RNA sequence: AGACGGUACUCUGGAGAGACCCGCAAGGGCGCCGAAGGGGCAAUAUAGCGCAGAACGCUAUUAAAUCUCUCAGGCAAAAGGACAGAGACGCUUAA
Numbered sequence: 001a002g003a004c005g006g007u008a009c010u011c012u013g014g015a016g017a018g019a020c021c022c023g024c025a026a027g028g029g030c031g032c033c034g035a036a037g038g039g040g041c042a043a044u045a046u047a048g049c050g051c052a053g054a055a056c057g058c059u060a061u062u063a064a065a066u067c068u069c070u071c072a073g074g075c076a077a078a079a080g081g082a083c084a085g086a087g088a089c090g091c092u093u094a095a
Stems, first nucleotide, its partner, number of pairs: 009087005020029003031075003034071002038069003045061006